This 81-nucleotide RNA from Conger conger belongs to the Rfam family "mir-190 microRNA precursor family". The literature on the family includes a 2006 paper in Nucleic Acids Res by Kloosterman et al., "Cloning and expression of new microRNAs from zebrafish". Its Rfam clan is "mir-50 clan". It scores 69 bits against the family's covariance model. The family has 76 seed sequences and 1,667 matches in Rfam 15.1. Lineage of the source: Eukaryota > Opisthokonta > Teleostomi > Congrinae > Conger.
RNA sequence: AGAGCUGUGUGAUAUGUUUGAUAUUCGGUUGUUUACCUGCGUAAAACGUCAACUAAAUAUCAGACAUAUUCCUACAGAUCU
Numbered sequence: 001a002g003a004g005c006u007g008u009g010u011g012a013u014a015u016g017u018u019u020g021a022u023a024u025u026c027g028g029u030u031g032u033u034u035a036c037c038u039g040c041g042u043a044a045a046a047c048g049u050c051a052a053c054u055a056a057a058u059a060u061c062a063g064a065c066a067u068a069u070u071c072c073u074a075c076a077g078a079u080c081u
Stems, first nucleotide, its partner, number of pairs: 005077005011070015027054005